Annotation
This 34-nucleotide sequence from Petrimonas mucosa belongs to the Rfam family "DUF805b RNA". It is annotated as a cis-regulatory element. The match comes from Rfam's covariance-model search (36 bits). The organism belongs to Petrimonas, within Bacteria.
[Rfam]
RNA sequence: UCAGCGGAGGCCGAAAAGCUAUACAGAGUAGGCA
Number, nucleotide and partner (000 for none) at each position: 001u000002c000003a020004g019005c018006g000007g000008a000009g000010g033011c032012c031013g000014a000015a000016a000017a000018g005019c004020u003021a000022u000023a000024c000025a000026g000027a000028g000029u000030a000031g012032g011033c010034a000